[Rfam]
RNA sequence: AAGAUGUAUCAAUGUUUGAGUAUCCUGAAAACGGGCUUUUCAGAACUUUGAUACAAUACUUUAUUUUAGGAGUGCAUAGUGGCCCGUAUAGCAGGCAUUAACAUUCCUGAU
Numbered sequence: 001a002a003g004a005u006g007u008a009u010c011a012a013u014g015u016u017u018g019a020g021u022a023u024c025c026u027g028a029a030a031a032c033g034g035g036c037u038u039u040u041c042a043g044a045a046c047u048u049u050g051a052u053a054c055a056a057u058a059c060u061u062u063a064u065u066u067u068a069g070g071a072g073u074g075c076a077u078a079g080u081g082g083c084c085c086g087u088a089u090a091g092c093a094g095g096c097a098u099u100a101a102c103a104u105u106c107c108u109g110a111u
Stems, first nucleotide, its partner, number of pairs: 005055008024095003032086004040110003